[Rfam]
RNA sequence: ACGGGUCAUAUGAUGAUUAAAAGCAUAGUUCAAAUGAAUUCUUUGUGAUUAUAAAACAAUCUUUAUAGUCUUUCGCUCCUAUCUGAUGACUCCU
Numbered sequence: 001a002c003g004g005g006u007c008a009u010a011u012g013a014u015g016a017u018u019a020a021a022a023g024c025a026u027a028g029u030u031c032a033a034a035u036g037a038a039u040u041c042u043u044u045g046u047g048a049u050u051a052u053a054a055a056a057c058a059a060u061c062u063u064u065a066u067a068g069u070c071u072u073u074c075g076c077u078c079c080u081a082u083c084u085g086a087u088g089a090c091u092c093c094u
Stems, first nucleotide, its partner, number of pairs: 004091005
Rfam assigns this 94-nucleotide RNA from Solanum tuberosum to the family "Small nucleolar RNA snR60/Z15/Z230/Z193/J17". The family has 23 seed sequences and 3,592 matches in Rfam 15.1. Gene Ontology terms of the family: RNA processing and nucleolus. Pairs were carried over by alignment from the consensus structure. Taxonomically the source falls in Solanum (Eukaryota, Embryophyta, Spermatophyta, Solaneae). On this family, see Chen et al., Nucleic Acids Res 2003: "The high diversity of snoRNAs in plants: identification and comparative study of 120 snoRNA genes from Oryza sativa".